[Rfam]
RNA sequence: GGUUGAACGGAUAACUUCCGUUUUCAAGAGUAUUAGGCUUCUGGGGUGGGAAGCU
Dot-bracket structure: ..(((((((((.....))))))..)))........(((((((......)))))))

Record summary
This 55-nucleotide sequence from Ruminiclostridium cellulolyticum belongs to the Rfam family "Na+ riboswitch aptamer (DUF1646)". On this family, see White et al., Nat Chem Biol 2022: "Na(+) riboswitches regulate genes for diverse physiological processes in bacteria". Gene Ontology terms of the family: sodium ion binding and regulation of gene expression.